[Rfam]
RNA sequence: UUAAAACGUAGAGGUUGCGAAGGCUUAAGAGUACUAAUAACGAGGUAAGCGCGAUGACUUAUUGGGAAAGGAAGAUUCGCCGAAGAGAUUAACUGACGCUUUAAGGUUAAUUCUCUGGGGGUGCAUAAAAGAUAUGCAUCACUGUCACAAAAAUCACUUUGUGGUGUGCUACAUUUGAG
Number, nucleotide and partner (000 for none) at each position: 001u000002u000003a000004a000005a000006a174007c000008g172009u171010a170011g169012a000013g000014g000015u000016u000017g080018c079019g078020a077021a076022g000023g000024c074025u073026u072027a000028a000029g000030a000031g000032u000033a000034c065035u064036a063037a062038u061039a060040a059041c000042g000043a000044g000045g000046u000047a000048a000049g000050c000051g000052c000053g000054a000055u000056g000057a000058c000059u040060u039061a038062u037063u036064g035065g034066g000067a000068a000069a000070g000071g000072a026073a025074g024075a000076u021077u020078c019079g018080c017081c000082g000083a000084a116085g115086a114087g113088a111089u110090u109091a108092a107093c106094u105095g000096a000097c000098g000099c000100u000101u000102u000103a000104a000105g094106g093107u092108u091109a090110a089111u088112u000113c087114u086115c085116u084117g143118g142119g000120g140121g139122u138123g137124c136125a135126u134127a133128a000129a000130a000131g000132a000133u127134a126135u125136g124137c123138a122139u121140c120141a000142c118143u117144g000145u164146c163147a162148c161149a160150a159151a158152a000153a000154u000155c000156a000157c000158u151159u150160u149161g148162u147163g146164g145165u000166g000167u000168g000169c011170u010171a009172c008173a000174u006175u000176u000177g000178a000179g000